RNA sequence: GGCCUAAAGCGUCCGUAGCUGGCCAGGCAAGUCCGUCGGGAAAUCCACGUGCUCAACAUGUGGGCGACCGGCGGAAACUGCCCGGCUUGGGACCGGAAGGCGCGACGGGUACGUCCAGGGUAGGAGUGAAAUCCCGUAAUCCUGAACGGACCGCCGAUGGGGAAACCACGUCGCGAAAACGGAUCCGACAGUGAGGGACGAAAGCUAGGGUCUCGAACCGGAUUAGAUACCCGGGUAGUCCUAGCCGUAAACGAUGCCUGUUAGGUGUGGCCCCCGCUACGAGCGGGUGCUGUGCCGUAGGGAAGCCGCUAAACAGGCCGCCUGGGAAGUACGUCCGCAAGGAUGAAACUUAAAGGAAU
Numbered sequence: 001g002g003c004c005u006a007a008a009g010c011g012u013c014c015g016u017a018g019c020u021g022g023c024c025a026g027g028c029a030a031g032u033c034c035g036u037c038g039g040g041a042a043a044u045c046c047a048c049g050u051g052c053u054c055a056a057c058a059u060g061u062g063g064g065c066g067a068c069c070g071g072c073g074g075a076a077a078c079u080g081c082c083c084g085g086c087u088u089g090g091g092a093c094c095g096g097a098a099g100g101c102g103c104g105a106c107g108g109g110u111a112c113g114u115c116c117a118g119g120g121u122a123g124g125a126g127u128g129a130a131a132u133c134c135c136g137u138a139a140u141c142c143u144g145a146a147c148g149g150a151c152c153g154c155c156g157a158u159g160g161g162g163a164a165a166c167c168a169c170g171u172c173g174c175g176a177a178a179a180c181g182g183a184u185c186c187g188a189c190a191g192u193g194a195g196g197g198a199c200g201a202a203a204g205c206u207a208g209g210g211u212c213u214c215g216a217a218c219c220g221g222a223u224u225a226g227a228u229a230c231c232c233g234g235g236u237a238g239u240c241c242u243a244g245c246c247g248u249a250a251a252c253g254a255u256g257c258c259u260g261u262u263a264g265g266u267g268u269g270g271c272c273c274c275c276g277c278u279a280c281g282a283g284c285g286g287g288u289g290c291u292g293u294g295c296c297g298u299a300g301g302g303a304a305g306c307c308g309c310u311a312a313a314c315a316g317g318c319c320g321c322c323u324g325g326g327a328a329g330u331a332c333g334u335c336c337g338c339a340a341g342g343a344u345g346a347a348a349c350u351u352a353a354a355g356g357a358a359u
Stems, first nucleotide, its partner, number of pairs: 001322003009319001011199004016193001018192003022086003026082003030079002032075008045063007090186003093182003101175007108152002112148003116144004123134003160167002204245006214238001218234004256318006264296008273287005300307002324351003333344004
The record is a 359-nucleotide part of an RNA from haloarchaeon 2ANA_DGR, which matches "Archaeal small subunit ribosomal RNA" in Rfam. Taxonomically the source falls in Halobacteriales (Archaea, Methanobacteriati, Methanobacteriota, Halobacteria). It is one of the family's seed sequences. The literature on the family includes a 2002 paper in BMC Bioinformatics by Cannone et al., "The comparative RNA web (CRW) site: an online database of comparative sequence and structure information for ribosomal, intron, and other RNAs".